[Rfam]
RNA sequence: CCUCUUUGGGGAGUAGCCUGCUUCCGGGGUCGCCCGGCAGCGUUCGUAUCAACAUUCUCGGCAGCAGCCGUGGUACGAACACCUUUCGGUUGGUGAGACCAAUGACAGAUACGUGCCUAAGGUCGGGCGCGUGUAUCCGUCAUUGACUCAUAGCCCGACCGAGACGU
Numbered sequence: 001c002c003u004c005u006u007u008g009g010g011g012a013g014u015a016g017c018c019u020g021c022u023u024c025c026g027g028g029g030u031c032g033c034c035c036g037g038c039a040g041c042g043u044u045c046g047u048a049u050c051a052a053c054a055u056u057c058u059c060g061g062c063a064g065c066a067g068c069c070g071u072g073g074u075a076c077g078a079a080c081a082c083c084u085u086u087c088g089g090u091u092g093g094u095g096a097g098a099c100c101a102a103u104g105a106c107a108g109a110u111a112c113g114u115g116c117c118u119a120a121g122g123u124c125g126g127g128c129g130c131g132u133g134u135a136u137c138c139g140u141c142a143u144u145g146a147c148u149c150a151u152a153g154c155c156c157g158a159c160c161g162a163g164a165c166g167u
Stems, first nucleotide, its partner, number of pairs: 020041003042080010059070004081167002084164004